[Rfam]
RNA sequence: GGGGUGUUCUCAGAGCAGGGGGCCUGAAGAAAUGGCUUCUCUGUUUACAGUACACCCAACAGGAAUCUGAGUUCAUUGGCAGGGGGCAUAGAACUAUGACCUUCCUGUGAACAAAUACCGCACGUGU
Numbered sequence: 001g002g003g004g005u006g007u008u009c010u011c012a013g014a015g016c017a018g019g020g021g022g023c024c025u026g027a028a029g030a031a032a033u034g035g036c037u038u039c040u041c042u043g044u045u046u047a048c049a050g051u052a053c054a055c056c057c058a059a060c061a062g063g064a065a066u067c068u069g070a071g072u073u074c075a076u077u078g079g080c081a082g083g084g085g086g087c088a089u090a091g092a093a094c095u096a097u098g099a100c101c102u103u104c105c106u107g108u109g110a111a112c113a114a115a116u117a118c119c120g121c122a123c124g125u126g127u
Base pairs, nucleotide, nucleotide: 002057003056004055005054006053007052013046014045015044016043017042018041019040020039021038022036023035024034071119073117077113078112080109081108083102084101085100087098088097089096090095
RNA: Small nucleolar RNA SNORA11
Organism: Erinaceus europaeus